RNA: Nuclear RNase P
RNA sequence: ACUGGCUGGAAGCUUACUGUAGAGGUCACGUGCAGAGUGCAAGUCACUCCACAAAUUCACCUCGGGGAAGGUCUGAGACAUGAGCCAACAGCUACCCUAGCAGGGUAUCACCUGAUGCGGGUGAGCAAGUGCACAGAAAUAUGGGCCAAUGGCGAGUAAUCUCUGCAGGAGAAGCCGAUCUGCACAGUUACAUGUGCCCUUCGGUGGAUGCGAUCUCGGCGGCUUGGAAACGCUUGCGGCUGGCGUAUGAGUGCGAUGUGUAAGCUGGCAAACGCUUCCAGAACCCAAUUCAGACUACUCUCCAUCCAGU
Numbered sequence: 001a002c003u004g005g006c007u008g009g010a011a012g013c014u015u016a017c018u019g020u021a022g023a024g025g026u027c028a029c030g031u032g033c034a035g036a037g038u039g040c041a042a043g044u045c046a047c048u049c050c051a052c053a054a055a056u057u058c059a060c061c062u063c064g065g066g067g068a069a070g071g072u073c074u075g076a077g078a079c080a081u082g083a084g085c086c087a088a089c090a091g092c093u094a095c096c097c098u099a100g101c102a103g104g105g106u107a108u109c110a111c112c113u114g115a116u117g118c119g120g121g122u123g124a125g126c127a128a129g130u131g132c133a134c135a136g137a138a139a140u141a142u143g144g145g146c147c148a149a150u151g152g153c154g155a156g157u158a159a160u161c162u163c164u165g166c167a168g169g170a171g172a173a174g175c176c177g178a179u180c181u182g183c184a185c186a187g188u189u190a191c192a193u194g195u196g197c198c199c200u201u202c203g204g205u206g207g208a209u210g211c212g213a214u215c216u217c218g219g220c221g222g223c224u225u226g227g228a229a230a231c232g233c234u235u236g237c238g239g240c241u242g243g244c245g246u247a248u249g250a251g252u253g254c255g256a257u258g259u260g261u262a263a264g265c266u267g268g269c270a271a272a273c274g275c276u277u278c279c280a281g282a283a284c285c286c287a288a289u290u291c292a293g294a295c296u297a298c299u300c301u302c303c304a305u306c307c308a309g310u
Base pairs, nucleotide, nucleotide: 001310002309003308004307008303009302010301013264014263015262016261017260022063023062024061025060035049036048037047038046039045073293074292075291076290077289083241084240085239086238093107094106095105096104097103108124109123110122111121112120113119125237126236127235128234129233130232131231145223146222147221265281266280267279268278270276